[Rfam]
RNA sequence: UUACGAUAAUGGCAAACCUUGCGAAAGUGAGGGACGCAAAGCUACGGGUCUAAGGUUCCAAGGAAUGAUGAUCGCCGGGCCACCGAA
Numbered sequence: 001u002u003a004c005g006a007u008a009a010u011g012g013c014a015a016a017c018c019u020u021g022c023g024a025a026a027g028u029g030a031g032g033g034a035c036g037c038a039a040a041g042c043u044a045c046g047g048g049u050c051u052a053a054g055g056u057u058c059c060a061a062g063g064a065a066u067g068a069u070g071a072u073c074g075c076c077g078g079g080c081c082a083c084c085g086a087a
Stems, first nucleotide, its partner, number of pairs: 012037002017032006041080003045077003048072003055066004
The record is an 87-nucleotide RNA from Heyndrickxia sporothermodurans, which matches "c-di-GMP-I riboswitch aptamer" in Rfam. The match comes from Rfam's covariance-model search (81 bits). The family's consensus secondary structure is taken from published work. The organism belongs to Heyndrickxia, within Bacteria.